[Rfam]
RNA: mir-29 microRNA precursor family
Organism: Oryzias latipes
RNA sequence: GGUUGACCGAUUUCUUUUGGUGUUCAGAGUCCGUUCUGUUUCUAGCACCAUUUGAAAUCGGUUACAG
Numbered sequence: 001g002g003u004u005g006a007c008c009g010a011u012u013u014c015u016u017u018u019g020g021u022g023u024u025c026a027g028a029g030u031c032c033g034u035u036c037u038g039u040u041u042c043u044a045g046c047a048c049c050a051u052u053u054g055a056a057a058u059c060g061g062u063u064a065c066a067g
Base pairs, nucleotide, nucleotide: 004064005062007061008060009059010058011057012056013055014054018050019049020048021047022046026043027042028041